[Rfam]
Makes More Granules Regulator RNA (mmgR): a 75-nucleotide sequence from Allosphingosinicella deserti. Taxonomically the source falls in Allosphingosinicella (Bacteria, Pseudomonadota, Sphingomonadales, Sphingomicrobiaceae). By type it is a small RNA. SuhB later renamed mmgR (makes more granules regulator) was a putative non-coding RNA found multiple times in the Agrobacterium tumefaciens genome and related alpha-proteobacteria. The pairing is the family consensus, mapped onto this sequence. Gene Ontology terms of the family: DNA-templated transcription, termination, protein binding and response to nitrogen compound. The match comes from Rfam's covariance-model search (44 bits).

RNA sequence: GGGGCAGGCCUUUCAGGCAUCCUCUCCUAUAAAACUUCAGGCCAUCCUCCGGGGUGGCCUUUUUUUGUGCGCCGC
Numbered sequence: 001g002g003g004g005c006a007g008g009c010c011u012u013u014c015a016g017g018c019a020u021c022c023u024c025u026c027c028u029a030u031a032a033a034a035c036u037u038c039a040g041g042c043c044a045u046c047c048u049c050c051g052g053g054g055u056g057g058c059c060u061u062u063u064u065u066u067g068u069g070c071g072c073c074g075c
Stems, first nucleotide, its partner, number of pairs: 008018004039060009